[Rfam]
RNA sequence: AUCUUAGGAAGAAAGGCUAAAUUCGCGCCGUCCUGGCGCAACGUCUUUCUGACCACCAUCCUGUUGG
Numbered sequence: 001a002u003c004u005u006a007g008g009a010a011g012a013a014a015g016g017c018u019a020a021a022u023u024c025g026c027g028c029c030g031u032c033c034u035g036g037c038g039c040a041a042c043g044u045c046u047u048u049c050u051g052a053c054c055a056c057c058a059u060c061c062u063g064u065u066g067g
Stems, first nucleotide, its partner, number of pairs: 011049007025039005053067003057063001
Record summary
A member of the RNA family "Bacillaceae-1 RNA" from Bacillus sp. J14TS2, 67 nucleotides long. By type it is a small RNA. The source organism's lineage runs through Bacteria, Bacillati, Bacillota, Caryophanales and Bacillus.